[Rfam]
RNA sequence: AUGCAGGUAAAGUUACAAUAUAACUGAAGUGUUUUAUUGUCGUUCCCCCUGCGUAAAGUAUUUGAUGCAUUACUAUCUCUGUCUAGCUCCAUUCCAUGUUAAGACAGAGACGCUUGGCCUCAAACAU
Numbered sequence: 001a002u003g004c005a006g007g008u009a010a011a012g013u014u015a016c017a018a019u020a021u022a023a024c025u026g027a028a029g030u031g032u033u034u035u036a037u038u039g040u041c042g043u044u045c046c047c048c049c050u051g052c053g054u055a056a057a058g059u060a061u062u063u064g065a066u067g068c069a070u071u072a073c074u075a076u077c078u079c080u081g082u083c084u085a086g087c088u089c090c091a092u093u094c095c096a097u098g099u100u101a102a103g104a105c106a107g108a109g110a111c112g113c114u115u116g117g118c119c120u121c122a123a124a125c126a127u
Stems, first nucleotide, its partner, number of pairs: 003052005015040006022033003078108004083103002085100002
Dot-bracket structure: ..(((((.......((((((.(((......))).)))))).......))))).........................((((.((((............)).)).))))...................
This 127-nucleotide RNA from Fukomys damarensis belongs to the Rfam family "Small nucleolar RNA SNORA63". E3 belongs to the H/ACA class of snoRNAs and is involved in the processing of eukaryotic pre-rRNA and has regions of complementarity to 18S rRNA. E3 is encoded in introns in the gene for protein synthesis initiation factor 4AII. The family has 8 seed sequences and 1,279 matches in Rfam 15.1.